[Rfam]
glmS glucosamine-6-phosphate activated ribozyme aptamer: a 225-nucleotide sequence from Paenibacillus swuensis.
Taxonomically the source falls in Paenibacillus (Bacteria, Bacillati, Bacillota, Paenibacillaceae).
The match comes from Rfam's covariance-model search (73 bits).
The family's RNA type in Rfam is riboswitch.
RNA sequence: GAAGCAACACAAGCGCCAGAACUGCGAAGGAAUUGUGCGGACGCGGACGGUGUGACGACGAUGGUGUCGGACGCAGCAGCCGGGUUUCAUGGGUACGGAGCAGUUGACGAGGUGGAGGGGUUCGAAGUUUUCGGCGGGGGCCUCCCGGCUUACGCAUCCGAGCCGAAAGUUGGAAACAAAACGUUACGGGCAACCGGGCGGACAAAGUUCCAAUGAGGAUGCUGA
Numbered sequence: 001g002a003a004g005c006a007a008c009a010c011a012a013g014c015g016c017c018a019g020a021a022c023u024g025c026g027a028a029g030g031a032a033u034u035g036u037g038c039g040g041a042c043g044c045g046g047a048c049g050g051u052g053u054g055a056c057g058a059c060g061a062u063g064g065u066g067u068c069g070g071a072c073g074c075a076g077c078a079g080c081c082g083g084g085u086u087u088c089a090u091g092g093g094u095a096c097g098g099a100g101c102a103g104u105u106g107a108c109g110a111g112g113u114g115g116a117g118g119g120g121u122u123c124g125a126a127g128u129u130u131u132c133g134g135c136g137g138g139g140g141c142c143u144c145c146c147g148g149c150u151u152a153c154g155c156a157u158c159c160g161a162g163c164c165g166a167a168a169g170u171u172g173g174a175a176a177c178a179a180a181a182c183g184u185u186a187c188g189g190g191c192a193a194c195c196g197g198g199c200g201g202a203c204a205a206a207g208u209u210c211c212a213a214u215g216a217g218g219a220u221g222c223u224g225a
Stems, first nucleotide, its partner, number of pairs: 020105006029096001114145005122134004146165006169214006182200004187196003